[Rfam]
RNA sequence: CAUUGAGAUGAUGAUGCAUUGUUCCGAAAUUACAUGGUGUUGACUAAAAAUGUUCAGACUACAAUUAUCUGAUCAAUG
Dot-bracket structure: ((((((..................................................................))))))
Rfam assigns this 78-nucleotide RNA from Morus notabilis to the family "Small nucleolar RNA Z155". The family has 8 seed sequences and 429 matches in Rfam 15.1. Gene Ontology terms of the family: nucleolus and RNA processing. By type it is a C/D-box small nucleolar RNA. The match comes from Rfam's covariance-model search (53 bits).